[Rfam]
Nucleotides: 534
Base pairs, nucleotide, nucleotide: 001497003495009494011365013363014362018358019357020356256352257351258350259349260347261346263344264343268340269339270338271337274318275317278314279313280312281311282310283309285307289300290299291298326333327332370411371410372409373408374407375406380404384400385399386398387397422493423492424491426485427484429469430468431467434464435463436462437461438460439459440458443456444455445454473480474479499526500525501524508519509518510517511516
Number, partner (000 for none) and nucleotide at each position: 001497c002000a003495g004000u005000u006000a007000a008000a009494a010000a011365g012000c013363u014362c015000g016000u017000a018358g019357u020356u021000g022000a023000a024000c025000u026000u027000c028000a029000g030000g031000c032000c033000u034000g035000g036000c037000u038000g039000g040000a041000c042000g043000g044000u045000c046000c047000g048000c049000c050000u051000u052000c053000c054000g055000g056000g057000u058000g059000a060000g061000u062000a063000c064000u065000g066000u067000c068000u069000g070000u071000g072000g073000u074000c075000g076000g077000g078000u079000c080000c081000u082000a083000c084000c085000u086000u087000c088000u089000g090000g091000c092000g093000a094000a095000g096000c097000g098000u099000c100000a101000u102000g103000g104000c105000c106000u107000u108000a109000a110000c111000c112000g113000g114000c115000c116000g117000u118000g119000g120000c121000g122000g123000g124000g125000a126000a127000c128000c129000a130000g131000g132000a133000c134000u135000u136000u137000u138000a139000c140000u141000g142000u143000g144000a145000a146000a147000a148000a149000a150000u151000u152000a153000g154000a155000g156000u157000g158000u159000u160000c161000a162000a163000a164000g165000c166000a167000g168000g169000c170000a171000a172000u173000u174000c175000g176000c177000u178000u179000g180000g181000a182000u183000a184000c185000a186000u187000u188000a189000g190000c191000a192000u193000g194000g195000a196000a197000u198000a199000a200000u201000g202000g203000a204000a205000u206000a207000g208000g209000a210000c211000a212000a213000u214000u215000g216000u217000u218000c219000u220000a221000u222000u223000u224000g225000u226000u227000g228000g229000u230000u231000u232000c233000u234000a235000g236000g237000a238000c239000u240000g241000u242000u243000g244000u245000a246000a247000u248000g249000a250000u251000u252000a253000a254000u255000a256352g257351g258350g259349a260347u261346a262000g263344u264343u265000g266000g267000g268340g269339g270338c271337a272000u273000u274318a275317g276000u277000a278314u279313u280312c281311a282310a283309u284000u285307g286000u287000c288000a289300g290299a291298g292000g293000u294000g295000a296000a297000a298291u299290u300289c301000u302000u303000g304000g305000a306000u307285u308000u309283a310282u311281u312280g313279a314278a315000g316000a317275c318274u319000a320000a321000c322000u323000a324000c325000u326333g327332c328000g329000a330000a331000a332327g333326c334000a335000u336000u337271u338270g339269c340268c341000a342000a343264g344263g345000a346261u347260g348000u349259u350258u351257u352256c353000a354000u355000u356020a357019a358018u359000c360000a361000a362014g363013a364000a365011c366000g367000a368000a369000a370411g371410u372409u373408a374407g375406g376000g377000g378000a379000u380404c381000g382000a383000a384400g385399a386398c387397g388000a389000u390000c391000a392000g393000a394000u395000a396000c397387c398386g399385u400384c401000g402000u403000a404380g405000u406375c407374u408373u409372a410371a411370c412000c413000a414000u415000a416000a417000a418000c419000u420000a421000u422493g423492c424491c425000g426485a427484c428000u429469a430468g431467g432000a433000a434464u435463c436462g437461g438460g439459c440458g441000a442000u443456g444455u445454u446000g447000a448000c449000a450000a451000a452000a453000u454445g455444a456443c457000g458440c459439g460438c461437u462436c463435g464434g465000c466000a467431c468430c469429u470000c471000a472000u473480g474479g475000g476000a477000a478000a479474c480473c481000a482000a483000a484427g485426u486000g487000u488000u489000u490000g491424g492423g493422u494009u495003c496000c497001g498000g499526g500525g501524g502000g503000a504000g505000u506000a507000u508519g509518g510517u511516c512000g513000c514000a515000a516511g517510g518509c519508u520000g521000a522000a523000a524501c525500u526499u527000a528000a529000a530000g531000g532000a533000a534000u